[Rfam]
Nucleotides: 046
Stems, first nucleotide, its partner, number of pairs: 003046003007042004015036004019031001020029002
Number, partner (000 for none) and nucleotide at each position: 001000c002000u003046g004045g005044c006000u007042c008041c009040g010039g011000u012000u013000c014000a015036c016035g017034u018033c019031c020029c021028g022000c023000a024000c025000c026000c027000g028021c029020g030000a031019g032000u033018g034017a035016c036015g037000a038000c039010c040009c041008g042007g043000c044005g045004c046003c
Source information:
L31-Actinobacteria ribosomal protein leader: a 46-nucleotide sequence. It is annotated as a cis-regulatory leader.